[Rfam]
RNA: drz-agam-2-2 ribozyme
RNA sequence: UAUAAAUCGUGGUCUGUGAAUGGGGUAGGAUCCGACGCCUCCUGAAGGCUACAUAGGCUCUCCUACCCAACUCCUAUUCUGGUAUGUCCUAGCCAUACAGACCGUGCACAUGUAGCCCCGUUUAUCUGAGGUAAAUCUUGGUUUAUCUUGGGUAAACGGGUCCAAUCCCAACCCCUUGGGAGGAUGGGGUUGCAUGGCCAAGGCAGAAGGG
Numbered sequence: 001u002a003u004a005a006a007u008c009g010u011g012g013u014c015u016g017u018g019a020a021u022g023g024g025g026u027a028g029g030a031u032c033c034g035a036c037g038c039c040u041c042c043u044g045a046a047g048g049c050u051a052c053a054u055a056g057g058c059u060c061u062c063c064u065a066c067c068c069a070a071c072u073c074c075u076a077u078u079c080u081g082g083u084a085u086g087u088c089c090u091a092g093c094c095a096u097a098c099a100g101a102c103c104g105u106g107c108a109c110a111u112g113u114a115g116c117c118c119c120g121u122u123u124a125u126c127u128g129a130g131g132u133a134a135a136u137c138u139u140g141g142u143u144u145a146u147c148u149u150g151g152g153u154a155a156a157c158g159g160g161u162c163c164a165a166u167c168c169c170a171a172c173c174c175c176u177u178g179g180g181a182g183g184a185u186g187g188g189g190u191u192g193c194a195u196g197g198c199c200a201a202g203g204c205a206g207a208a209g210g211g
Base pairs, nucleotide, nucleotide: 011103012102013101014100015099016098017097023068024067025066026065027064028063029062030061032057033056072211073210074209075208077207078206080205081204083202084096085095086094089104109196110195111194112193113192114191116189117188118187119186124185125184126183127182138171139170140169141168173180174179